[Rfam]
RNA sequence: CGUGCGCUCCGGGGCUCGGUGAAACUCCGAACCGGCGGUACAGCCCGCGAACCGCUCGGCAGCGAUGCCGAACGGCCGACCUGGUGAAACUCCAGGGCCGACGGUGACAGUCCGGAUGGGAGGCGCGCACA
Numbered sequence: 001c002g003u004g005c006g007c008u009c010c011g012g013g014g015c016u017c018g019g020u021g022a023a024a025c026u027c028c029g030a031a032c033c034g035g036c037g038g039u040a041c042a043g044c045c046c047g048c049g050a051a052c053c054g055c056u057c058g059g060c061a062g063c064g065a066u067g068c069c070g071a072a073c074g075g076c077c078g079a080c081c082u083g084g085u086g087a088a089a090c091u092c093c094a095g096g097g098c099c100g101a102c103g104g105u106g107a108c109a110g111u112c113c114g115g116a117u118g119g120g121a122g123g124c125g126c127g128c129a130c131a
Stems, first nucleotide, its partner, number of pairs: 003129005009123002017029003031111002033100002035048004043098002052075002080096005102114003
Notes
This 131-nucleotide RNA sequence from Kutzneria kofuensis belongs to the Rfam family "FMN riboswitch aptamer (RFN element)". The family's consensus secondary structure is taken from published work. Taxonomically the source falls in Kutzneria (Bacteria, Bacillati, Actinomycetota, Pseudonocardiaceae). Rfam links the family to the GO term FMN binding.